[Rfam]
RNA: c-di-GMP-I riboswitch aptamer
Organism: Paenibacillus cremeus
RNA sequence: UUUUGAUAAAGGCAAACAUAUCCGAAAGGUAUGGACGCAAAGCCACGGGCCUACAGAGUAAAGCUAUGGCAGCCGGGUUGCCGAA
Numbered sequence: 001u002u003u004u005g006a007u008a009a010a011g012g013c014a015a016a017c018a019u020a021u022c023c024g025a026a027a028g029g030u031a032u033g034g035a036c037g038c039a040a041a042g043c044c045a046c047g048g049g050c051c052u053a054c055a056g057a058g059u060a061a062a063g064c065u066a067u068g069g070c071a072g073c074c075g076g077g078u079u080g081c082c083g084a085a
Stems, first nucleotide, its partner, number of pairs: 012038002017033004022029002041079004046075003049070003056064001